[Rfam]
RNA sequence: AAGAAGUGCGCGUGGAUAGAAUAAAACUAUGGCGUAUGAGCCACAGUUUUAUUCUAUCCACGCGCACUUCUUCCUUCUCGGCUUCUACCGGACAUCAAUGCCUUUAUACGUCACAG
Numbered sequence: 001a002a003g004a005a006g007u008g009c010g011c012g013u014g015g016a017u018a019g020a021a022u023a024a025a026a027c028u029a030u031g032g033c034g035u036a037u038g039a040g041c042c043a044c045a046g047u048u049u050u051a052u053u054c055u056a057u058c059c060a061c062g063c064g065c066a067c068u069u070c071u072u073c074c075u076u077c078u079c080g081g082c083u084u085c086u087a088c089c090g091g092a093c094a095u096c097a098a099u100g101c102c103u104u105u106a107u108a109c110g111u112c113a114c115a116g
Stems, first nucleotide, its partner, number of pairs: 002071015018055005024049004031042003